[Rfam]
RNA sequence: GCUUUUUCCCCCCCCCCCCGCGGGCGUAGGCUACAGAGAAGCCCCCCCCCCCUGGGGGAAAGAGC
Numbered sequence: 001g002c003u004u005u006u007u008c009c010c011c012c013c014c015c016c017c018c019c020g021c022g023g024g025c026g027u028a029g030g031c032u033a034c035a036g037a038g039a040a041g042c043c044c045c046c047c048c049c050c051c052c053u054g055g056g057g058g059a060a061a062g063a064g065c
Stems, first nucleotide, its partner, number of pairs: 001065004009058003013054001020046001023043003026034002
Record summary
The record is a 65-nucleotide RNA sequence from Phaetusa simplex, which matches "MAT2A 3'UTR stem loop A" in Rfam. Pairs were carried over by alignment from the consensus structure, which is taken from published work. A search with the family's covariance model found it, with a score of 42 bits. A reference for the family is Parker et al. (2011), "New families of human regulatory RNA structures identified by comparative analysis of vertebrate genomes", Genome Res. The organism belongs to Phaetusa, within Eukaryota.